Shown here is a 528-nucleotide part of an RNA from Plasmodium falciparum, a member of the family "Eukaryotic large subunit ribosomal RNA". The sequence is in the family's curated seed alignment.
RNA sequence: AUUUUCGAAAGAUCUCUCAGGAUCGCUGGAGUUGAAUUUAAUAUAGUUUUAUGAGGUAGAGAUAAUGAUUAGAGGAUUUAGGGAAAUGAAUUUUCCUUAACCUAUUCUCAAACUUCCAAUAUGUAAAGAGGGUGCGAUAUCUGAAAAGUAUUUCACUUUGGCGUAAAUAAGAUAACUCCAAGUGGGCCAUUUUUGGUAAGCAGAACUGGCGAUGAGGGAUGCUCCUAACGCCUGGAUAAGGUGCCUAAAUAUUCGCUCAUGAGAUCCCAUAAAAGGUGUUGGUUCAUAAUGACAGUAGGACGAUGGUCAUGGAAGUCGAAAUUCGCUUAGGAGUGUGUAACAACUCACCUACCGAAUGAACUAGCCCUGAAAAUGGAUGGCGCUAAAGCGAAUUACCGAUACCGGGCCAUAAGAAGGUAGAAAUUAUAAAUGUUAAUUUAGCUCAGAUCUUUUUAUGAGUAGAAAAUCGUGGGGUUUGUGUUGAAGCGAAAUACGUGAGUUUUCGUGGAACAUCUCCCUAGUGCAGAU
Numbered sequence: 001a002u003u004u005u006c007g008a009a010a011g012a013u014c015u016c017u018c019a020g021g022a023u024c025g026c027u028g029g030a031g032u033u034g035a036a037u038u039u040a041a042u043a044u045a046g047u048u049u050u051a052u053g054a055g056g057u058a059g060a061g062a063u064a065a066u067g068a069u070u071a072g073a074g075g076a077u078u079u080a081g082g083g084a085a086a087u088g089a090a091u092u093u094u095c096c097u098u099a100a101c102c103u104a105u106u107c108u109c110a111a112a113c114u115u116c117c118a119a120u121a122u123g124u125a126a127a128g129a130g131g132g133u134g135c136g137a138u139a140u141c142u143g144a145a146a147a148g149u150a151u152u153u154c155a156c157u158u159u160g161g162c163g164u165a166a167a168u169a170a171g172a173u174a175a176c177u178c179c180a181a182g183u184g185g186g187c188c189a190u191u192u193u194u195g196g197u198a199a200g201c202a203g204a205a206c207u208g209g210c211g212a213u214g215a216g217g218g219a220u221g222c223u224c225c226u227a228a229c230g231c232c233u234g235g236a237u238a239a240g241g242u243g244c245c246u247a248a249a250u251a252u253u254c255g256c257u258c259a260u261g262a263g264a265u266c267c268c269a270u271a272a273a274a275g276g277u278g279u280u281g282g283u284u285c286a287u288a289a290u291g292a293c294a295g296u297a298g299g300a301c302g303a304u305g306g307u308c309a310u311g312g313a314a315g316u317c318g319a320a321a322u323u324c325g326c327u328u329a330g331g332a333g334u335g336u337g338u339a340a341c342a343a344c345u346c347a348c349c350u351a352c353c354g355a356a357u358g359a360a361c362u363a364g365c366c367c368u369g370a371a372a373a374u375g376g377a378u379g380g381c382g383c384u385a386a387a388g389c390g391a392a393u394u395a396c397c398g399a400u401a402c403c404g405g406g407c408c409a410u411a412a413g414a415a416g417g418u419a420g421a422a423a424u425u426a427u428a429a430a431u432g433u434u435a436a437u438u439u440a441g442c443u444c445a446g447a448u449c450u451u452u453u454u455a456u457g458a459g460u461a462g463a464a465a466a467u468c469g470u471g472g473g474g475u476u477u478g479u480g481u482u483g484a485a486g487c488g489a490a491a492u493a494c495g496u497g498a499g500u501u502u503u504c505g506u507g508g509a510a511c512a513u514c515u516c517c518c519u520a521g522u523g524c525a526g527a528u
Base pairs, nucleotide, nucleotide: 001467002466003465004464005463006462011024012023013022014021015020027180028179029178030177031176032175033174047129048128049126050125051124052123053122059116060114061113066110067109068108071105073103074102075101078100079099080098081097082096083095085093131157132156133155134154136152137151138150139149186210187209188208189207191205192204193203194202195201215226216225217224230407231406232405233404234403240397241396242395249394251393254390255389256388274368275367276366278365279364280363281362282361283360284359285358286357287356295352296351297350298349299348301325302324303323307319308318326330331346335344336343408457409456410455411454412453413452414451415450416449417448418447468523470520471519472518473517474516477512478511479510486506487505493500494499